[Rfam]
RNA sequence: GUGCAUCCGUUGGGGUGCCUGACAAGGCUGAGAGGCGAAAGCUGACCCAUCGAACCUGAUCCGGGUCAUUCCGGCGUAGGGAACGGAGUAAAGCUUUGG
Dot-bracket structure: .....(((((((((..((((....))))......((....))...)))).....((((..((((......))))..))))..)))))............
Numbered sequence: 001g002u003g004c005a006u007c008c009g010u011u012g013g014g015g016u017g018c019c020u021g022a023c024a025a026g027g028c029u030g031a032g033a034g035g036c037g038a039a040a041g042c043u044g045a046c047c048c049a050u051c052g053a054a055c056c057u058g059a060u061c062c063g064g065g066u067c068a069u070u071c072c073g074g075c076g077u078a079g080g081g082a083a084c085g086g087a088g089u090a091a092a093g094c095u096u097u098g099g
Stems, first nucleotide, its partner, number of pairs: 006087005011049004017028004035042002055080004061074004